[Rfam]
RNA sequence: UUGAAGUUCCAUCUCUUAAUGGAUAAGAUUUUUCUACUAACAUAUAGGAAUUUUUAAAGGAAGAAAAAAAAACCUGAAAUACCCAAUAUCCUGUUUCAACAGGAUAUUGGGUAUUUCUUUG
Number, nucleotide and partner (000 for none) at each position: 001u000002u000003g000004a000005a000006g000007u000008u023009c022010c021011a020012u019013c000014u000015c000016u000017u000018a000019a012020u011021g010022g009023a008024u000025a000026a000027g000028a000029u000030u000031u000032u000033u000034c000035u000036a000037c000038u000039a000040a000041c000042a000043u000044a000045u000046a000047g000048g000049a000050a000051u000052u000053u000054u000055u000056a000057a000058a000059g000060g000061a000062a000063g000064a000065a000066a000067a000068a000069a000070a120071a119072a000073c000074c000075u000076g117077a116078a115079a114080u113081a112082c111083c000084c109085a108086a107087u000088a105089u104090c103091c102092u101093g000094u000095u000096u000097c000098a000099a000100c000101a092102g091103g090104a089105u088106a000107u086108u085109g084110g000111g082112u081113a080114u079115u078116u077117c076118u000119u071120u070121g000

The record is a 121-nucleotide RNA, which matches "Plastid-psbA-1 3UTR RNA" in Rfam. Rfam's curators put it in the seed alignment. From the family's description: Plastid psbA-1 is a non-coding RNA (ncRNA) present in plastids. It was identified in inverted repeat sequences in the 3 prime untranslate region (3UTR) of photosystem II quinone-binding protein (psbA). On this family, see Richter et al., Plant Commun 2023: "Retrograde signaling in plants: A critical review focusing on the GUN pathway and beyond". Clan: Plastid-psbA 3UTR RNA clan. Rfam classes the family as a cis-regulatory element.